Annotation
The family of this 127-nucleotide RNA sequence from Sinocyclocheilus anshuiensis is "Small nucleolar RNA ACA64". It is annotated as an H/ACA-box small nucleolar RNA. On this family, see Schattner et al., RNA 2006: "A computational screen for mammalian pseudouridylation guide H/ACA RNAs". Gene Ontology terms of the family: nucleolus and RNA processing. NCBI's taxonomy places the organism under Eukaryota, Opisthokonta, Neopterygii, Ostariophysi, Sinocyclocheilus. Pairs were carried over by alignment from the consensus structure, which was predicted with WAR.
Nucleotides: 127
Base pairs, nucleotide, nucleotide: 005052006051008049010046013043014042015041016040021035022034023033024032066120068118069117070116071115072114080108081107082106083105084104085099086098087097
Number, partner (000 for none) and nucleotide at each position: 001000a002000c003000a004000g005052a006051c007000u008049g009000a010046a011000a012000a013043u014042u015041a016040c017000c018000u019000c020000a021035g022034u023033u024032g025000u026000a027000c028000c029000u030000g031000u032024u033023g034022a035021c036000u037000g038000a039000a040016g041015u042014a043013a044000g045000a046010u047000a048000a049008c050000u051006g052005u053000g054000c055000c056000g057000a058000c059000a060000g061000a062000a063000a064000c065000u066120g067000g068118u069117a070116c071115a072114u073000u074000u075000u076000a077000a078000g079000c080108u081107u082106a083105u084104u085099g086098u087097c088000a089000g090000u091000c092000a093000c094000u095000g096000u097087g098086a099085c100000u101000c102000a103000c104084a105083a106082u107081g108080a109000a110000a111000c112000c113000c114072a115071u116070g117069u118068g119000c120066c121000a122000a123000c124000a125000g126000u127000u